[Rfam]
RNA sequence: GGGGGGUGUGACCCUGUGCUCCCUGGGGGGUGUGACCCUGUGUUCCCUGGGGGUGUGACGCUGUGCUCCCU
Dot-bracket structure: (((((.........((((.((((((((((.((((....)))).))))))))))))))........))))).
Numbered sequence: 001g002g003g004g005g006g007u008g009u010g011a012c013c014c015u016g017u018g019c020u021c022c023c024u025g026g027g028g029g030g031u032g033u034g035a036c037c038c039u040g041u042g043u044u045c046c047c048u049g050g051g052g053g054u055g056u057g058a059c060g061c062u063g064u065g066c067u068c069c070c071u
Stems, first nucleotide, its partner, number of pairs: 001070005015057004020053010031042004
mir-3689 microRNA precursor family: a 71-nucleotide sequence from Theropithecus gelada. It scores 59 bits against the family's covariance model. The family has 7 seed sequences and 117 matches in Rfam 15.1.